[Rfam]
RNA sequence: GACCACGUGGCCUAAUGGAUAAGGCGUCCGACUUCGGAUCGGAAGAUUGAGGGUUCGAGUCCCUUCGUGGUUG
Numbered sequence: 001g002a003c004c005a006c007g008u009g010g011c012c013u014a015a016u017g018g019a020u021a022a023g024g025c026g027u028c029c030g031a032c033u034u035c036g037g038a039u040c041g042g043a044a045g046a047u048u049g050a051g052g053g054u055u056c057g058a059g060u061c062c063c064u065u066c067g068u069g070g071u072u073g
Stems, first nucleotide, its partner, number of pairs: 001072007010025004027043005049065005